[Rfam]
RNA sequence: GGGGGCGUUACGGAUUCGACAGGCAUUGUCGCGCAUGAACUGCAACUGGUGGUGAUGUCACCUAAAUCCAUCGCAGAUAAAUAUAACUGCUAAAAAUAACACUUCUUACGCACUCGCUGCCUAAACACCAGCUUGCGUAGCUGAUGAUCGUUCGCCGAUGGCGGCCUGAAGCUCUAAACCUCAGUCGGAUACGUUUUUAUGGUGGCUUUACAUAAAAAAAGAGAUUUUAAAGCACCGCAAAUUUCUGCUGUUUGAGACUGGCUUUGGAAAUUUGUUAAACUAGAGAAAGUCCUAUGGUUGUAGACGUUGAUGUAGCAAGGUGUCUGGACAGGGGUUCAACUCCCCUCGCCUCCAUUG
Numbered sequence: 001g002g003g004g005g006c007g008u009u010a011c012g013g014a015u016u017c018g019a020c021a022g023g024c025a026u027u028g029u030c031g032c033g034c035a036u037g038a039a040c041u042g043c044a045a046c047u048g049g050u051g052g053u054g055a056u057g058u059c060a061c062c063u064a065a066a067u068c069c070a071u072c073g074c075a076g077a078u079a080a081a082u083a084u085a086a087c088u089g090c091u092a093a094a095a096a097u098a099a100c101a102c103u104u105c106u107u108a109c110g111c112a113c114u115c116g117c118u119g120c121c122u123a124a125a126c127a128c129c130a131g132c133u134u135g136c137g138u139a140g141c142u143g144a145u146g147a148u149c150g151u152u153c154g155c156c157g158a159u160g161g162c163g164g165c166c167u168g169a170a171g172c173u174c175u176a177a178a179c180c181u182c183a184g185u186c187g188g189a190u191a192c193g194u195u196u197u198u199a200u201g202g203u204g205g206c207u208u209u210a211c212a213u214a215a216a217a218a219a220a221g222a223g224a225u226u227u228u229a230a231a232g233c234a235c236c237g238c239a240a241a242u243u244u245c246u247g248c249u250g251u252u253u254g255a256g257a258c259u260g261g262c263u264u265u266g267g268a269a270a271u272u273u274g275u276u277a278a279a280c281u282a283g284a285g286a287a288a289g290u291c292c293u294a295u296g297g298u299u300g301u302a303g304a305c306g307u308u309g310a311u312g313u314a315g316c317a318a319g320g321u322g323u324c325u326g327g328a329c330a331g332g333g334g335u336u337c338a339a340c341u342c343c344c345c346u347c348g349c350c351u352c353c354a355u356u357g
Base pairs, nucleotide, nucleotide: 001353002352003351004350005349006348007347020326021325022324023323024322025321026320027319029317033313034312035311036310038308039307040306043300044299045298046297047296048062049061050060051059052058053073054072055071056070057069113135116132117131118130119129139173140172141171142170146166148164149163150162151161155188156187157186158185159184194218195217196216197215198214199213200212201211205233206232207231208230209229237275238274239273240272241271242270243269244268245267246266247262248261249260250292253289259286330346331345332344333343334342
RNA: transfer-messenger RNA
Organism: Lactococcus garvieae